[Rfam]
RNA: MIR396 microRNA precursor family
Organism: Tetracentron sinense
RNA sequence: UGUCAUGCUUUUCCACAGCUUUCUUGAACUUCUUCUUCAGUUUAAUCUCUUGGUUAGGCCUAGAAGCUCAAGAAAGCUGUGGGAGAACAUGGCGA
Numbered sequence: 001u002g003u004c005a006u007g008c009u010u011u012u013c014c015a016c017a018g019c020u021u022u023c024u025u026g027a028a029c030u031u032c033u034u035c036u037u038c039a040g041u042u043u044a045a046u047c048u049c050u051u052g053g054u055u056a057g058g059c060c061u062a063g064a065a066g067c068u069c070a071a072g073a074a075a076g077c078u079g080u081g082g083g084a085g086a087a088c089a090u091g092g093c094g095a
Stems, first nucleotide, its partner, number of pairs: 003092005013082003017078006024071004029066005